[Rfam]
The record is an 83-nucleotide RNA sequence from Pseudolycoriella hygida, which matches "mir-2765 microRNA precursor family" in Rfam. The family has 6 seed sequences and 109 matches in Rfam 15.1. The organism belongs to Pseudolycoriella, within Eukaryota.
RNA sequence: AAUGAAUUGGAACCUGGUAACUCCACCACCGUUGGCGAUAAUUGACUGCCAAUGGGAGUUGGAGUUUCCGCGUGCCGAACAUU
Numbered sequence: 001a002a003u004g005a006a007u008u009g010g011a012a013c014c015u016g017g018u019a020a021c022u023c024c025a026c027c028a029c030c031g032u033u034g035g036c037g038a039u040a041a042u043u044g045a046c047u048g049c050c051a052a053u054g055g056g057a058g059u060u061g062g063a064g065u066u067u068c069c070g071c072g073u074g075c076c077g078a079a080c081a082u083u
Stems, first nucleotide, its partner, number of pairs: 003081002007078004012073001016069002019066004023061001026058001029055009